A member of the RNA family "Small nucleolar RNA SNORA28" from Nannospalax galili, 126 nucleotides long. About the family: ACA28 is a member of the H/ACA class of snoRNA that guide the sites of modification of uridines to pseudouridines. By type it is an H/ACA-box small nucleolar RNA.
[Rfam]
RNA sequence: AAGCGACACUCUGUGGCAGAUGAGCAGAACUAUCUGACACAAUUUGAGCUUGCUAUAGCAAGAAAGUCUAACCCAUUCCGGCAUUCUGUUCCCCAUGAGACAACCUAUUACAUAGGCUCAAACAAU
Numbered sequence: 001a002a003g004c005g006a007c008a009c010u011c012u013g014u015g016g017c018a019g020a021u022g023a024g025c026a027g028a029a030c031u032a033u034c035u036g037a038c039a040c041a042a043u044u045u046g047a048g049c050u051u052g053c054u055a056u057a058g059c060a061a062g063a064a065a066g067u068c069u070a071a072c073c074c075a076u077u078c079c080g081g082c083a084u085u086c087u088g089u090u091c092c093c094c095a096u097g098a099g100a101c102a103a104c105c106u107a108u109u110a111c112a113u114a115g116g117c118u119c120a121a122a123c124a125a126u
Stems, first nucleotide, its partner, number of pairs: 009048003012041004017036006065118006076110001080106002087100001089098002
The match comes from Rfam's covariance-model search (110 bits).